This 84-nucleotide sequence from Rhodopseudomonas palustris belongs to the Rfam family "Makes More Granules Regulator RNA (mmgR)". The sequence is in the family's curated seed alignment. On this family, see Valverde et al., BMC Genomics 2008: "Prediction of Sinorhizobium meliloti sRNA genes and experimental detection in strain 2011". SuhB later renamed mmgR (makes more granules regulator) was a putative non-coding RNA found multiple times in the Agrobacterium tumefaciens genome and related alpha-proteobacteria. The family's RNA type in Rfam is small RNA. Lineage of the source: Bacteria > Pseudomonadati > Hyphomicrobiales > Rhodopseudomonas > Rhodopseudomonas palustris.
RNA sequence: UCGCGGUCCCCUUCCUUGGGGCGUUUCCUCCCUAGACUUGGGCCCGGGCGCCGAAUGGCGACCGGGCCUCUUUAUUUGUCCUUC
Numbered sequence: 001u002c003g004c005g006g007u008c009c010c011c012u013u014c015c016u017u018g019g020g021g022c023g024u025u026u027c028c029u030c031c032c033u034a035g036a037c038u039u040g041g042g043c044c045c046g047g048g049c050g051c052c053g054a055a056u057g058g059c060g061a062c063c064g065g066g067c068c069u070c071u072u073u074a075u076u077u078g079u080c081c082u083u084c
Stems, first nucleotide, its partner, number of pairs: 009021003041068007049060003